[Rfam]
RNA sequence: GAACACCCUAAAGAAUCGCGAUCGAAGCAUCACAUACAAAAGAAAGCAAUUUUUUUACUUUCUUUUACCAAAAAAGCUUUGGGGAAAGUCCCCGGACACGUGGCAGAAAGUGUCGCCCAUAAUGCGGUAAAAGCCGAUUGUUUGCGCAAUGUCAUCCCGUUAGAGAUAACGUACGAGUCAACGAUAGGGUUUCUUUGAAAUUCUGAGACUCGGAUGUCGCAUGCGAACCGGUCGUGUUGGUCAUAGCACAGUUAUGCGAUUGUACUUGUUUGUUUGUUCGUUCAUUAAGAACGACAACGACGGGUAUAACUCAACGGGGCUUACUCUUGGGGUGUU
Numbered sequence: 001g002a003a004c005a006c007c008c009u010a011a012a013g014a015a016u017c018g019c020g021a022u023c024g025a026a027g028c029a030u031c032a033c034a035u036a037c038a039a040a041a042g043a044a045a046g047c048a049a050u051u052u053u054u055u056u057a058c059u060u061u062c063u064u065u066u067a068c069c070a071a072a073a074a075a076g077c078u079u080u081g082g083g084g085a086a087a088g089u090c091c092c093c094g095g096a097c098a099c100g101u102g103g104c105a106g107a108a109a110g111u112g113u114c115g116c117c118c119a120u121a122a123u124g125c126g127g128u129a130a131a132a133g134c135c136g137a138u139u140g141u142u143u144g145c146g147c148a149a150u151g152u153c154a155u156c157c158c159g160u161u162a163g164a165g166a167u168a169a170c171g172u173a174c175g176a177g178u179c180a181a182c183g184a185u186a187g188g189g190u191u192u193c194u195u196u197g198a199a200a201u202u203c204u205g206a207g208a209c210u211c212g213g214a215u216g217u218c219g220c221a222u223g224c225g226a227a228c229c230g231g232u233c234g235u236g237u238u239g240g241u242c243a244u245a246g247c248a249c250a251g252u253u254a255u256g257c258g259a260u261u262g263u264a265c266u267u268g269u270u271u272g273u274u275u276g277u278u279c280g281u282u283c284a285u286u287a288a289g290a291a292c293g294a295c296a297a298c299g300a301c302g303g304g305u306a307u308a309a310c311u312c313a314a315c316g317g318g319g320c321u322u323a324c325u326c327u328u329g330g331g332g333u334g335u336u
Stems, first nucleotide, its partner, number of pairs: 002336010014261006022082007039065007086322003090319004102114004155226002158223003165218003176210004186196004263306008
RNA: RNase MRP